[Rfam]
RNA sequence: AGAACUGAUCGCUAGAAGUAGAGGAAAGUCCGUGCUAUCACUAGCUGCGAUGCUAGUAGUGAGUGUGCUAGAGCUAAGAACUCUAGGGUAAAAACGACAGCUGAAGCCUAAGUCGCAAGAUAUGGUGUAAGUACUAAAGUGCCACAGAAACGAUGCUUGAGAGAAAUCUCAUGGUGAAAAGGGGUAAACUCCGCACGAUAGAAACCCAAAUUUGGUAGGGGAGUCAGGCUAAGGGAAUUGAACUAAGGCCUGGUAGGUAACUAAGAUAAAUGAUUGGUUGAAAAACAGAACACGGCUUACAAGA
Numbered sequence: 001a002g003a004a005c006u007g008a009u010c011g012c013u014a015g016a017a018g019u020a021g022a023g024g025a026a027a028g029u030c031c032g033u034g035c036u037a038u039c040a041c042u043a044g045c046u047g048c049g050a051u052g053c054u055a056g057u058a059g060u061g062a063g064u065g066u067g068c069u070a071g072a073g074c075u076a077a078g079a080a081c082u083c084u085a086g087g088g089u090a091a092a093a094a095c096g097a098c099a100g101c102u103g104a105a106g107c108c109u110a111a112g113u114c115g116c117a118a119g120a121u122a123u124g125g126u127g128u129a130a131g132u133a134c135u136a137a138a139g140u141g142c143c144a145c146a147g148a149a150a151c152g153a154u155g156c157u158u159g160a161g162a163g164a165a166a167u168c169u170c171a172u173g174g175u176g177a178a179a180a181g182g183g184g185u186a187a188a189c190u191c192c193g194c195a196c197g198a199u200a201g202a203a204a205c206c207c208a209a210a211u212u213u214g215g216u217a218g219g220g221g222a223g224u225c226a227g228g229c230u231a232a233g234g235g236a237a238u239u240g241a242a243c244u245a246a247g248g249c250c251u252g253g254u255a256g257g258u259a260a261c262u263a264a265g266a267u268a269a270a271u272g273a274u275u276g277g278u279u280g281a282a283a284a285a286c287a288g289a290a291c292a293c294g295g296c297u298u299a300c301a302a303g304a
Base pairs, nucleotide, nucleotide: 002300004278005277006276007275008274009273010272012021013020014019026298027297028296030295031294032293033292034291035201036200037199038198039197040057041056042055043054044053045052063196064195065194066193067192068086069085070084071083072082073081087095096191097190100132101131102130107125108124112121113120114119139189140188141185142184143183156173158171159170160169161168162167205220206219207218224253225252226251227250228249229248230247254263255262256261
Dot-bracket structure: .(.(((((((.(((....)))....[[[.[[[[[(((((((((((......)))))).....(((((((((((.......))))))(.......)((..(((....((...(((....)))..))....)))......(((((............(.(((((....))))).).........)))..))))))))))))))...(((..........)))...(((((((................)))))))(((....)))........)))))))............]]]]]]]].)....